[Rfam]
RNA sequence: AAAAAAAAAUCCUCGCAAGGGAUUCCUUGCGAGGUGCCUUACACAUACAAGGUAUGUAUUUAAGGCUAUGGGAGAGGAGAAACCGGAGGAAGAACUUAUGGGGAAACGUAAGCCUUCUCCGCGG
Dot-bracket structure: ..........(((((((((......)))))))))(.(.(.....(((((.....)))))........).).)...........((((.((((..((((..........)))).))))))))...

Shown here is a 124-nucleotide RNA from Halalkalibacter suaedae, a member of the family "ylbH leader".
Gene Ontology term of the family: regulation of gene expression.
The family's RNA type in Rfam is cis-regulatory leader.
From the family's description: This family is a putative regulatory RNA structure that is found upstream of the ylbH gene in B. subtilis and related low GC Gram-positive bacteria.
On this family, see Barrick et al., Proc Natl Acad Sci U S A 2004: "New RNA motifs suggest an expanded scope for riboswitches in bacterial genetic control".